[Rfam]
RNA sequence: UUUUCCAUUUACUUGCUGCUCUGGUCUCAGUGAUAGAAGCAGUUUAGGCAUGGGAUAAAAUUAUAUUGGACCAUUGUGAAUUGAGAUAGUAUUUUGUCUCUUGUACGUGAACUAAACAUUG
Numbered sequence: 001u002u003u004u005c006c007a008u009u010u011a012c013u014u015g016c017u018g019c020u021c022u023g024g025u026c027u028c029a030g031u032g033a034u035a036g037a038a039g040c041a042g043u044u045u046a047g048g049c050a051u052g053g054g055a056u057a058a059a060a061u062u063a064u065a066u067u068g069g070a071c072c073a074u075u076g077u078g079a080a081u082u083g084a085g086a087u088a089g090u091a092u093u094u095u096g097u098c099u100c101u102u103g104u105a106c107g108u109g110a111a112c113u114a115a116a117c118a119u120u121g
Stems, first nucleotide, its partner, number of pairs: 003055006015043006022035002025033002066115004072109002075107004083100007
RNA: Small nucleolar RNA SNORA20
Organism: Microtus ochrogaster